[Rfam]
Nucleotides: 150
Stems, first nucleotide, its partner, number of pairs: 004067005009060001012043006080144001082142009095130003
Number, partner (000 for none) and nucleotide at each position: 001000a002000c003000u004067g005066c006065a007064g008063g009060a010000u011000u012043g013042u014041g015040u016039a017038u018000u019000g020000g021000u022000g023000u024000u025000g026000u027000g028000c029000u030000g031000u032000c033000a034000a035000u036000a037000u038017a039016u040015g041014c042013a043012c044000u045000u046000c047000u048000u049000g050000c051000c052000g053000a054000a055000a056000g057000u058000g059000u060009u061000u062000u063008c064007c065006u066005g067004c068000a069000a070000c071000a072000g073000u074000c075000a076000u077000c078000u079000u080144g081000g082142g083141g084140a085139a086138g087137a088136u089135g090134g091000g092000c093000a094000a095130u096129u097128g098000g099000a100000u101000u102000u103000a104000a105000c106000u107000a108000c109000a110000c111000a112000u113000u114000u115000u116000u117000a118000u119000u120000g121000g122000g123000a124000a125000c126000c127000a128097c129096a130095a131000c132000a133000a134090u135089c136088a137087u138086u139085u140084u141083c142082c143000g144080c145000a146000u147000a148000u149000a150000u
The family of this 150-nucleotide RNA from Dioscorea zingiberensis is "small nucleolar RNA snoR135". The match comes from Rfam's covariance-model search (85 bits). By type it is an H/ACA-box small nucleolar RNA. The literature on the family includes a 2009 paper in Nucleic Acids Res by Chen and Wu, "Mining small RNA sequencing data: a new approach to identify small nucleolar RNAs in Arabidopsis".